A member of the RNA family "ASpks TB sRNA", 69 nucleotides long. For this family Rfam cites "Identification of small RNAs in Mycobacterium tuberculosis" (Arnvig and Young, Mol Microbiol, 2009).

[Rfam]
RNA sequence: CUUCAGGGAGCCGAGCAGCACGGGCCGCUCGCGGUCCUGGCCGUAGGUGGCCAGCAGGGCCUGCGCCUC
Number, nucleotide and partner (000 for none) at each position: 001c000002u000003u000004c000005a000006g000007g000008g000009a000010g000011c000012c000013g000014a000015g025016c024017a000018g000019c000020a000021c000022g000023g000024g016025c015026c000027g000028c065029u000030c063031g000032c059033g000034g000035u000036c000037c054038u053039g052040g000041c050042c049043g048044u000045a000046g000047g000048u043049g042050g041051c000052c039053a038054g037055c000056a000057g000058g000059g032060c000061c000062u000063g030064c000065g028066c000067c000068u000069c000